[Rfam]
Nucleotides: 111
Stems, first nucleotide, its partner, number of pairs: 006099005011061004017032005039055007067092004073086004
Number, partner (000 for none) and nucleotide at each position: 001000g002000c003000a004000c005000c006099g007098u008097g009096c010095c011061a012060c013059g014058g015000g016000a017032g018031u019030c020029c021028a022000g023000u024000g025000c026000g027000a028021u029020g030019g031018g032017c033000u034000g035000a036000g037000a038000g039055g040054a041053g042052g043051g044050g045049c046000c047000g048000c049045g050044c051043c052042c053041c054040u055039c056000g057000a058014c059013c060012g061011u062000c063000c064000g065000a066000a067092c068091c069090u070089g071000a072000a073086c074085c075084g076083g077000g078000u079000a080000a081000u082000u083076c084075c085074g086073g087000c088000g089070c090069a091068g092067g093000g094000a095010g096009g097008c098007g099006u100000g101000a102000u103000c104000a105000g106000c107000u108000c109000g110000a111000u
TPP riboswitch aptamer (THI element): a 111-nucleotide RNA from Saccharopolyspora rectivirgula. Vitamin B(1) in its active form thiamin pyrophosphate (TPP) is an essential coenzyme that is synthesised by coupling of pyrimidine and thiazole moieties in bacteria.